This 137-nucleotide RNA from Chaetura pelagica belongs to the Rfam family "Small nucleolar RNA SNORA55". Taxonomically the source falls in Chaetura (Eukaryota, Gnathostomata, Dinosauria, Apodidae). Rfam's curators write: ACA55 is a member of the H/ACA class of snoRNA that guide the sites of modification of uridines to pseudouridines. Rfam 15.1 lists 1,476 matches to the family in 616 species.
RNA sequence: GCACCCGAAUCUUUUCCUUGUUUCCUUGCUGUGUGGUGCAGGUCUAGGCAUGGUUGGUGCAUCAGCACAGCAGUGGAAAUCCAGAUGGGUUGUUUUGCACUGGUUUGGGACUCAUCUCUGCAUCAUUUACCACUUAA
Numbered sequence: 001g002c003a004c005c006c007g008a009a010u011c012u013u014u015u016c017c018u019u020g021u022u023u024c025c026u027u028g029c030u031g032u033g034u035g036g037u038g039c040a041g042g043u044c045u046a047g048g049c050a051u052g053g054u055u056g057g058u059g060c061a062u063c064a065g066c067a068c069a070g071c072a073g074u075g076g077a078a079a080u081c082c083a084g085a086u087g088g089g090u091u092g093u094u095u096u097g098c099a100c101u102g103g104u105u106u107g108g109g110a111c112u113c114a115u116c117u118c119u120g121c122a123u124c125a126u127u128u129a130c131c132a133c134u135u136a137a
Stems, first nucleotide, its partner, number of pairs: 001060005014050001016048003020044001024042002070130001072128001073126003083117008098107002